[Rfam]
RNA sequence: AUAUAAUACUGAUGUUAGCCGCAGACAGUAGGGGCAGUAGCUUAAAAAUCCUACCGAGGUUUAUAAUCGUAUUUUGAUUGUUCAUCUCACGCGGCGUGAGAUUUUUUUUAUUUAUGG
Numbered sequence: 001a002u003a004u005a006a007u008a009c010u011g012a013u014g015u016u017a018g019c020c021g022c023a024g025a026c027a028g029u030a031g032g033g034g035c036a037g038u039a040g041c042u043u044a045a046a047a048a049u050c051c052u053a054c055c056g057a058g059g060u061u062u063a064u065a066a067u068c069g070u071a072u073u074u075u076g077a078u079u080g081u082u083c084a085u086c087u088c089a090c091g092c093g094g095c096g097u098g099a100g101a102u103u104u105u106u107u108u109u110a111u112u113u114a115u116g117g
Stems, first nucleotide, its partner, number of pairs: 028054006034041002084102008

Description
Ribosomal protein L10 leader: a 117-nucleotide RNA sequence. The base pairs follow the family's consensus structure, which was predicted with CMfinder. This family is a putative r-protein leader autoregulatory structure found in B. subtilis and other low-GC Gram-positive bacteria. It scores 71 bits against the family's covariance model.